[Rfam]
RNA sequence: AUUCCCAUUUAACUACCACUUAUUCAGUCUCUAGUUUAAGUGGCUAUGCUUGUGGGAUAGAGAAAAAUUUGCCAUGGUCUGAAGGAAAAGGUUGAUUGUAUCUUUUUCCUAUAUGAAGAUGGCAGAACAACCUUUA
Numbered sequence: 001a002u003u004c005c006c007a008u009u010u011a012a013c014u015a016c017c018a019c020u021u022a023u024u025c026a027g028u029c030u031c032u033a034g035u036u037u038a039a040g041u042g043g044c045u046a047u048g049c050u051u052g053u054g055g056g057a058u059a060g061a062g063a064a065a066a067a068u069u070u071g072c073c074a075u076g077g078u079c080u081g082a083a084g085g086a087a088a089a090g091g092u093u094g095a096u097u098g099u100a101u102c103u104u105u106u107u108c109c110u111a112u113a114u115g116a117a118g119a120u121g122g123c124a125g126a127a128c129a130a131c132c133u134u135u136a
Stems, first nucleotide, its partner, number of pairs: 004056004016043004071123004089110003